Shown here is a 116-nucleotide RNA sequence from Brachypodium distachyon, a member of the family "MIR5070 microRNA precursor family".
[Rfam]
RNA sequence: CAGGGUACCUUUGAUCCUUUUUAGUUCAACAAAAUGAACUAAAUUUUUAAAAUGACACAAUUUUUUAGAAAAUUAGUUUAUUUGUUUGAACUAAGUAGGAUCAAAGGGUGACCCUU
Numbered sequence: 001c002a003g004g005g006u007a008c009c010u011u012u013g014a015u016c017c018u019u020u021u022u023a024g025u026u027c028a029a030c031a032a033a034a035u036g037a038a039c040u041a042a043a044u045u046u047u048u049a050a051a052a053u054g055a056c057a058c059a060a061u062u063u064u065u066u067a068g069a070a071a072a073u074u075a076g077u078u079u080a081u082u083u084g085u086u087u088g089a090a091c092u093a094a095g096u097a098g099g100a101u102c103a104a105a106g107g108g109u110g111a112c113c114c115u116u
Base pairs, nucleotide, nucleotide: 002115003114004113005112006111007109008107009106010105011104012103013102014101015100016099017098018097020095021094022093023092024091025090026089027088028087029086032083033082034081035080036079037078038077039076040075041074042073

The match comes from Rfam's covariance-model search (101 bits).